[Rfam]
RNA sequence: CUUUUAUUACACGGGAGCUCGGUAAACCGGGCUGAGAGGAAAACUAAGUAGUUUUCGACCGUCAACCUGAUCUGGGUAAUGCCAGCGCAGGGAGAUUCUCUAACCCGUGCC
Numbered sequence: 001c002u003u004u005u006a007u008u009a010c011a012c013g014g015g016a017g018c019u020c021g022g023u024a025a026a027c028c029g030g031g032c033u034g035a036g037a038g039g040a041a042a043a044c045u046a047a048g049u050a051g052u053u054u055u056c057g058a059c060c061g062u063c064a065a066c067c068u069g070a071u072c073u074g075g076g077u078a079a080u081g082c083c084a085g086c087g088c089a090g091g092g093a094g095a096u097u098c099u100c101u102a103a104c105c106c107g108u109g110c111c
Base pairs, nucleotide, nucleotide: 006099009096011062012061013060014059017032018031019030020029021028039056040055041054042053043052044051045050066091067090068089069088072085073084074083075082